[Rfam]
RNA: miR-430 microRNA precursor family
Organism: Salarias fasciatus
RNA sequence: CGUAUUACACUAACCAAAGCACUGACUUGAUGUCUAAAACAGUAAGUGCUUUUUGUUGGUGUGGUGUAG
Number, nucleotide and partner (000 for none) at each position: 001c000002g000003u000004a065005u064006u063007a062008c061009a060010c059011u058012a000013a056014c055015c000016a053017a052018a050019g049020c048021a047022c046023u045024g000025a043026c042027u041028u000029g000030a000031u000032g000033u000034c000035u000036a000037a000038a000039a000040c000041a027042g026043u025044a000045a023046g022047u021048g020049c019050u018051u000052u017053u016054u000055g014056u013057u000058g011059g010060u009061g008062u007063g006064g005065u004066g000067u000068a000069g000